[Rfam]
RNA sequence: GGGCUGGCUUUAGCCUAGCGGUUCCUUUGACUCUGGCUUCCCAACCGCCCAGGUCGCUGGCUUCCAUGGGUUCCGUGGUUCGAGACCCGCAGGCACUCUCCAGUCCUUUA
Numbered sequence: 001g002g003g004c005u006g007g008c009u010u011u012a013g014c015c016u017a018g019c020g021g022u023u024c025c026u027u028u029g030a031c032u033c034u035g036g037c038u039u040c041c042c043a044a045c046c047g048c049c050c051a052g053g054u055c056g057c058u059g060g061c062u063u064c065c066a067u068g069g070g071u072u073c074c075g076u077g078g079u080u081c082g083a084g085a086c087c088c089g090c091a092g093g094c095a096c097u098c099u100c101c102a103g104u105c106c107u108u109u110a
Stems, first nucleotide, its partner, number of pairs: 002105006013094004018090004026084005